[Rfam]
RNA sequence: GUACAUUCUCAGGGCGGGGCGAAAUUCCCCACCGGCGGUAUGUUUAAUUCACUAUUUUAAUUACAUUUGUAGUGUUUAAAUAAGCCCGCGAGCGCUUUGUUGUUUUAUAUAAUAUCAAAGGUCAGCAGAUCUGGUGAGAUGCCAGAGCCGACGGUUACAGUCCGGAUGAAAGAGAAUAUGG
Dot-bracket structure: ..(.((((((......(((.......))).[[((((((...............................................))))..((...............................))...(((((.......)))))..)).(((.....]]))).......)))))).)..
FMN riboswitch aptamer (RFN element): a 181-nucleotide RNA sequence from Pseudoalteromonas translucida. The source organism's lineage runs through Bacteria, Pseudomonadati, Pseudomonadota, Pseudoalteromonas and Pseudoalteromonas translucida.